[Rfam]
RNA sequence: GUCCUCGGUCACUUCACAACGGAUCGUCCGGCACGUACCUGCCGGUGAAGGAGACAAC
Dot-bracket structure: .........(.(((((...........((((((......)))))))))))).......
msiK RNA: a 58-nucleotide RNA sequence from Nocardioides luteus. By type it is a cis-regulatory element. The base pairs follow the family's consensus structure, which is taken from published work. Taxonomically the source falls in Nocardioides (Bacteria, Actinomycetota, Propionibacteriales, Nocardioidaceae).